RNA: Plastid-psbN 5UTR RNA
Organism: Populus tomentosa
RNA sequence: UUCAACACCCAUCAAAGAGGUAGUUCCCCACCCCCAAACUACUUUUCCAUACUCUGAAUUU
Numbered sequence: 001u002u003c004a005a006c007a008c009c010c011a012u013c014a015a016a017g018a019g020g021u022a023g024u025u026c027c028c029c030a031c032c033c034c035c036a037a038a039c040u041a042c043u044u045u046u047c048c049a050u051a052c053u054c055u056g057a058a059u060u061u
Stems, first nucleotide, its partner, number of pairs: 017045009